[Rfam]
RNA: MIR9563 microRNA precursor family
RNA sequence: GGAAUAUAAGAACCCGUCUCUUAACUUUUAACUAGAAAAACUAAAAAACCGGCUCUUAAAAACCGGCUCUUAAAAAAACUAUUUAAGAGCCGGUUCUUAGUUUUUUUAGUUAAAAGUUAGGAGACGGAUUUUUAUAUUCC
Numbered sequence: 001g002g003a004a005u006a007u008a009a010g011a012a013c014c015c016g017u018c019u020c021u022u023a024a025c026u027u028u029u030a031a032c033u034a035g036a037a038a039a040a041c042u043a044a045a046a047a048a049c050c051g052g053c054u055c056u057u058a059a060a061a062a063c064c065g066g067c068u069c070u071u072a073a074a075a076a077a078a079c080u081a082u083u084u085a086a087g088a089g090c091c092g093g094u095u096c097u098u099a100g101u102u103u104u105u106u107u108a109g110u111u112a113a114a115a116g117u118u119a120g121g122a123g124a125c126g127g128a129u130u131u132u133u134a135u136a137u138u139c140c
Stems, first nucleotide, its partner, number of pairs: 001140012014127026041100004046095002